Rfam assigns this 66-nucleotide sequence from Rhinolophus ferrumequinum to the family "Small nucleolar RNA SNORD73". The match comes from Rfam's covariance-model search (64 bits). The family's consensus secondary structure was predicted with PFOLD. The literature on the family includes a 1998 paper in Gene by Rebane et al., "A novel snoRNA (U73) is encoded within the introns of the human and mouse ribosomal protein S3a genes".

RNA sequence: AGUGAAUGAUGACAAAAUGUUGCAGUCCCAGAUGAUAAAUACUGAUAAUGUUACAUUUCUGAUAUU
Number, nucleotide and partner (000 for none) at each position: 001a066002g065003u064004g063005a000006a000007u000008g000009a000010u000011g000012a000013c000014a000015a000016a000017a000018u000019g000020u000021u000022g000023c000024a000025g000026u000027c000028c000029c000030a000031g000032a000033u000034g000035a000036u000037a000038a000039a000040u000041a000042c000043u000044g000045a000046u000047a000048a000049u000050g000051u000052u000053a000054c000055a000056u000057u000058u000059c000060u000061g000062a000063u004064a003065u002066u001